[Rfam]
RNA sequence: GCCGCGGCUAGCUCGACGGAGCGAAAACCGGUUUCCUGACCGGCCCGCCGAUGGCGUUUCGAACUCAGGA
Number, nucleotide and partner (000 for none) at each position: 001g055002c054003c053004g052005c050006g049007g048008c047009u000010a000011g022012c021013u020014c019015g000016a000017c000018g000019g014020a013021g012022c011023g000024a000025a000026a000027a000028c043029c042030g041031g040032u000033u000034u070035c069036c068037u067038g066039a065040c031041c030042g029043g028044c000045c000046c000047g008048c007049c006050g005051a000052u004053g003054g002055c001056g000057u000058u000059u000060c000061g000062a000063a000064c000065u039066c038067a037068g036069g035070a034
A member of the RNA family "int-alpA RNA" from Rosistilla oblonga, 70 nucleotides long. The organism belongs to Rosistilla, within Bacteria.